[Rfam]
RNA sequence: UGGAGAAGGGGAGCACGUGCAAAGCACAUUUCAAACAUGUGAAACUUGCACGUGCCCUGCUUCUCCAAC
Numbered sequence: 001u002g003g004a005g006a007a008g009g010g011g012a013g014c015a016c017g018u019g020c021a022a023a024g025c026a027c028a029u030u031u032c033a034a035a036c037a038u039g040u041g042a043a044a045c046u047u048g049c050a051c052g053u054g055c056c057c058u059g060c061u062u063c064u065c066c067a068a069c
Stems, first nucleotide, its partner, number of pairs: 001067008010058002013055010029035001
Dot-bracket structure: ((((((((.((.((((((((((......(.....)..........)))))))))).)).))))))))..

Shown here is a 69-nucleotide RNA from Hibiscus trionum, a member of the family "MIR164 microRNA precursor family". Rfam links the family to the GO terms RISC complex and miRNA-mediated post-transcriptional gene silencing. The base pairs follow the family's consensus structure, which was predicted with RNAalifold.